About this RNA:
PAGEV RNA: a 216-nucleotide RNA sequence from Vibrio aquimaris. The organism belongs to Vibrio, within Bacteria. A search with the family's covariance model found it, with a score of 122 bits.
[Rfam]
RNA sequence: UUCUGUUUGGAUUCGAGAUGUUUUGGACGGGACGAUGCGCAUCAACCACCGAUCAAGGGAAGUUCCAAAGGUGGUAGGUAAAGGCACUAAUCAGAACUAAGCGAAAGCUCGAUAAAACCGCCCCUUGUAGCUGCUAGAGGGGAUAGGCGGAAAAGGAAUAACUGAUUAGUGUUGUGUGACCGGAACGGGGGCGAAAGCCUAACACACAGCGCAGGG
Dot-bracket structure: (((((((..................)))))))............((((((...........[[[[[...)))))).........((((((((((...................................................................))))))))))((((((....]]]]]..((((....))))...)))))).......